[Rfam]
RNA sequence: UGGUAGAUGCACCCUGAUAUAACACCUCCGGCUCAGACAUUGGGCUUGGAGGUUUUUUAU
Dot-bracket structure: .(((......)))...........(((((((((((.....))))).))))))........
Numbered sequence: 001u002g003g004u005a006g007a008u009g010c011a012c013c014c015u016g017a018u019a020u021a022a023c024a025c026c027u028c029c030g031g032c033u034c035a036g037a038c039a040u041u042g043g044g045c046u047u048g049g050a051g052g053u054u055u056u057u058u059a060u
Stems, first nucleotide, its partner, number of pairs: 002013003025052006031045005
Description:
The record is a 60-nucleotide RNA sequence from Oscillatoria sp. FACHB-1407, which matches "Nitrogen stress-induced RNA 1" in Rfam. A reference for the family is Ionescu et al. (2010), "Heterocyst-specific transcription of NsiR1, a non-coding RNA encoded in a tandem array of direct repeats in cyanobacteria", J Mol Biol. NCBI's taxonomy places the organism under Bacteria, Bacillati, Oscillatoriales, Oscillatoriaceae, Oscillatoria. It scores 57 bits against the family's covariance model. Pairs were carried over by alignment from the consensus structure.